[Rfam]
RNA sequence: GAGUUUCAGACGGCCCACUCCUCCUAGGGACGUCUUGUAGGAACAGCGGCACUCCUCCUCCCAGUCGCUGUUCGGUUCUUUUCGAAAAGCCUGCCGGACCUCCUCCCGCGGCACGCUUUUUCG
Numbered sequence: 001g002a003g004u005u006u007c008a009g010a011c012g013g014c015c016c017a018c019u020c021c022u023c024c025u026a027g028g029g030a031c032g033u034c035u036u037g038u039a040g041g042a043a044c045a046g047c048g049g050c051a052c053u054c055c056u057c058c059u060c061c062c063a064g065u066c067g068c069u070g071u072u073c074g075g076u077u078c079u080u081u082u083c084g085a086a087a088a089g090c091c092u093g094c095c096g097g098a099c100c101u102c103c104u105c106c107c108g109c110g111g112c113a114c115g116c117u118u119u120u121u122c123g
Stems, first nucleotide, its partner, number of pairs: 008035005014029003041073010087118004092113005
Dot-bracket structure: .......(((((.(((..........))).))))).....((((((((((.............)))))))))).............((((.(((((............))))).)))).....

Alphaproteobacterial ar14: a 123-nucleotide sequence from Rhizobium sp. P32RR-XVIII. On this family, see Robledo et al., Environ Microbiol 2017: "A conserved alpha-proteobacterial small RNA contributes to osmoadaptation and symbiotic efficiency of rhizobia on legume roots". It is annotated as a small RNA. About the family: Smr14C2 was renamed NfeR1 (Nodule Formation Efficiency RNA) highly expressed in salt stress and during the symbiotic interaction on legume roots. The organism belongs to Rhizobium, within Bacteria.